[Rfam]
A member of the RNA family "mir-9242 microRNA precursor family" from Cnephaeus nilssonii, 72 nucleotides long. Its family is annotated with miRNA-mediated post-transcriptional gene silencing and RISC complex in the Gene Ontology. Pairs were carried over by alignment from the consensus structure, which was predicted with RNAalifold.
RNA sequence: GGCCUCCCUCUGCAGGGCGAUCGAUCGCAGAGCUUCCCCAGGCCCCAAUUGAUUGCCCUGCAGAGGGUGGCC
Numbered sequence: 001g002g003c004c005u006c007c008c009u010c011u012g013c014a015g016g017g018c019g020a021u022c023g024a025u026c027g028c029a030g031a032g033c034u035u036c037c038c039c040a041g042g043c044c045c046c047a048a049u050u051g052a053u054u055g056c057c058c059u060g061c062a063g064a065g066g067g068u069g070g071c072c
Base pairs, nucleotide, nucleotide: 001072002071003070004069006067007066008065009064010063011062012061013060014059015058016057017056018055019054020053021052022051023050024049025048027046